[Rfam]
RNA sequence: GAAACCCCCACAACACUCUGGCCCUUACCGUUCUUUCCCUGCGGGGUUUGAUCAUAUCACGACGUGGUAUGCGGCUUAUUUUAAGUGGGGAAGAUUAAAUUCGGUCCCAUUACUCAUCGCGGUACACUUGGAGUUCGCUCCGUGGGUGCAGUGAUCCAUCAUACGGGUCUACAU
Numbered sequence: 001g002a003a004a005c006c007c008c009c010a011c012a013a014c015a016c017u018c019u020g021g022c023c024c025u026u027a028c029c030g031u032u033c034u035u036u037c038c039c040u041g042c043g044g045g046g047u048u049u050g051a052u053c054a055u056a057u058c059a060c061g062a063c064g065u066g067g068u069a070u071g072c073g074g075c076u077u078a079u080u081u082u083a084a085g086u087g088g089g090g091a092a093g094a095u096u097a098a099a100u101u102c103g104g105u106c107c108c109a110u111u112a113c114u115c116a117u118c119g120c121g122g123u124a125c126a127c128u129u130g131g132a133g134u135u136c137g138c139u140c141c142g143u144g145g146g147u148g149c150a151g152u153g154a155u156c157c158a159u160c161a162u163a164c165g166g167g168u169c170u171a172c173a174u
Stems, first nucleotide, its partner, number of pairs: 007090003020076004024071001026069006104169001106167002117154004122149003127145002
A member of the RNA family "Small nucleolar RNA snR80" from Penicillium arizonense, 174 nucleotides long.
It scores 40 bits against the family's covariance model.
Gene Ontology terms of the family: RNA processing and nucleolus.
The family's RNA type in Rfam is H/ACA-box small nucleolar RNA.